[Rfam]
RNA sequence: ACUGCUUUUCUUUGAAAUCCUCAAAUUGUGGAGCCCGCUAAGAAUAUACUUAGCGGGUUUUUUAUU
Numbered sequence: 001a002c003u004g005c006u007u008u009u010c011u012u013u014g015a016a017a018u019c020c021u022c023a024a025a026u027u028g029u030g031g032a033g034c035c036c037g038c039u040a041a042g043a044a045u046a047u048a049c050u051u052a053g054c055g056g057g058u059u060u061u062u063u064a065u066u
Base pairs, nucleotide, nucleotide: 032059033058034057035056036055037054038053039052040051041050042049
Shown here is a 66-nucleotide RNA sequence from Erwinia mallotivora, a member of the family "RybB RNA". It scores 62 bits against the family's covariance model. It is annotated as a small RNA. This ncRNA was identified in a large scale screen of E. coli. The function of this short RNA is unknown. The exact 5' and 3' ends of this RNA are uncertain. On this family, see Wassarman et al., Genes Dev 2001: "Identification of novel small RNAs using comparative genomics and microarrays".